Annotation: The family of this 89-nucleotide RNA sequence from Cynara cardunculus is "Small nucleolar RNA R16".
RNA sequence: AAUGGCAUAUGAUGAAAUCUCAGUUUUAUGCUUAACUCACUGAUUUAACCAUGGUGACUACAUAACUCCGCUUAUUAUCUGAUGCCAAU
Numbered sequence: 001a002a003u004g005g006c007a008u009a010u011g012a013u014g015a016a017a018u019c020u021c022a023g024u025u026u027u028a029u030g031c032u033u034a035a036c037u038c039a040c041u042g043a044u045u046u047a048a049c050c051a052u053g054g055u056g057a058c059u060a061c062a063u064a065a066c067u068c069c070g071c072u073u074a075u076u077a078u079c080u081g082a083u084g085c086c087a088a089u
Base pairs, nucleotide, nucleotide: 003087004086005085006084007083